Vault RNA: an 89-nucleotide RNA from Scyliorhinus torazame.
[Rfam]
RNA sequence: GCGUCAGCUUUAGCUCACUGGUUACUUCACAGCAUCAACUUAAUUGUGAGUUUGGACCUGUCUCACCGUGGGCGCUGCCUGGCGUUUUU
Numbered sequence: 001g002c003g004u005c006a007g008c009u010u011u012a013g014c015u016c017a018c019u020g021g022u023u024a025c026u027u028c029a030c031a032g033c034a035u036c037a038a039c040u041u042a043a044u045u046g047u048g049a050g051u052u053u054g055g056a057c058c059u060g061u062c063u064c065a066c067c068g069u070g071g072g073c074g075c076u077g078c079c080u081g082g083c084g085u086u087u088u089u
Stems, first nucleotide, its partner, number of pairs: 002084006013073004019068003026050005
Rfam classes the family as a non-coding RNA gene. Pairs were carried over by alignment from the consensus structure, which is taken from published work.